[Rfam]
RNA sequence: UUAAGAAUAUAACUCCGAGCUAAAAGGCCUUCGGUUUCUGCAUGGAUCAUGGUCUGCAGCCGUUAGGGUUGUACUGGAAACGGUUCAGCCUUCCACCACUUGAAAAGGAGUCUGUAUGAAUGUCUC
Dot-bracket structure: .....(.....(((((..(((...(((((...((((........))))..)))))..))).....((((((.((((....)))).))))))((........))...))))).....).........

The record is a 126-nucleotide RNA sequence from Desulfotalea psychrophila, which matches "Molybdenum/Tungsten riboswitch aptamer (Moco RNA motif)" in Rfam.
Pairs were carried over by alignment from the consensus structure, which is taken from published work.
A reference for the family is Regulski et al. (2008), "in molybdenum cofactor and tungsten cofactor metabolism", Mol Microbiol.
The match comes from Rfam's covariance-model search (55 bits).